[Rfam]
RNA sequence: GGCGAUAAAUUGCUGCGUGCAAUAGGUACAACGGACCCGGGGGCAGUACCCGGCGGCUCCACCAUAAGACCCUGUAUUUGGGGUGUUUUGACGGGGCCGAACUAGGAUCGACGUGGACUGAAAAGCGUAGUUUUUGCCCGGGCUGAAAACCCCGUAAAACUGUUCACAACUCAUAAGUGCAAACGAUAACGAAGCACUCGCAAUCGCUGCGUAA
Number, nucleotide and partner (000 for none) at each position: 001g138002g137003c136004g135005a134006u000007a000008a000009a000010u000011u000012g000013c000014u000015g128016c127017g126018u125019g000020c000021a000022a000023u000024a000025g000026g000027u117028a000029c115030a000031a114032c113033g112034g000035a000036c000037c053038c052039g051040g050041g049042g000043g000044c000045a000046g000047u000048a000049c041050c040051c039052g038053g037054c099055g098056g097057c096058u095059c094060c093061a000062c000063c000064a000065u000066a000067a000068g000069a000070c000071c000072c000073u000074g000075u000076a000077u000078u000079u000080g000081g000082g000083g000084u000085g000086u000087u000088u000089u000090g000091a000092c000093g060094g059095g058096g057097c056098c055099g054100a000101a000102c000103u000104a000105g000106g000107a000108u000109c000110g000111a000112c033113g032114u031115g029116g000117a027118c000119u000120g000121a000122a000123a000124a000125g018126c017127g016128u015129a000130g000131u000132u000133u000134u005135u004136g003137c002138c001139c154140g153141g152142g151143c000144u000145g000146a000147a000148a000149a000150c000151c142152c141153c140154g139155u000156a000157a000158a000159a000160c000161u000162g000163u000164u000165c000166a000167c000168a000169a000170c000171u000172c000173a000174u000175a000176a000177g000178u000179g000180c000181a000182a000183a000184c000185g000186a000187u000188a000189a000190c000191g000192a000193a000194g000195c000196a000197c000198u000199c000200g000201c000202a000203a000204u000205c000206g000207c000208u000209g000210c000211g000212u000213a000214a000

Shown here is a 214-nucleotide sequence from Erythrobacter longus, a member of the family "permuted transfer-messenger RNA". Rfam classes the family as a non-coding RNA gene. Its family is annotated with RNA catabolic process in the Gene Ontology. It scores 138 bits against the family's covariance model. Bacterial tmRNA, also known as 10Sa RNA or SsrA, is named for its dual tRNA and mRNA-like properties. Taxonomically the source falls in Erythrobacter (Bacteria, Pseudomonadati, Sphingomonadales, Erythrobacteraceae). The literature on the family includes a 1996 paper in RNA by Williams and Bartel, "Phylogenetic analysis of tmRNA secondary structure".